[Rfam]
RNA: Purine riboswitch aptamer
Organism: Massiliimalia timonensis
RNA sequence: UUUUUUUCUGUUGGAAGUACUUAUAUAAGCUCAUUGAUAUGGAAUGAGAUUCUCUAUGCGGCAACCUUAAAUUGUCUGCGCUAUAAGGAUUCUUCGGUUUAGG
Numbered sequence: 001u002u003u004u005u006u007u008c009u010g011u012u013g014g015a016a017g018u019a020c021u022u023a024u025a026u027a028a029g030c031u032c033a034u035u036g037a038u039a040u041g042g043a044a045u046g047a048g049a050u051u052c053u054c055u056a057u058g059c060g061g062c063a064a065c066c067u068u069a070a071a072u073u074g075u076c077u078g079c080g081c082u083a084u085a086a087g088g089a090u091u092c093u094u095c096g097g098u099u100u101a102g103g
Stems, first nucleotide, its partner, number of pairs: 018089001020087006030048006058079002060076005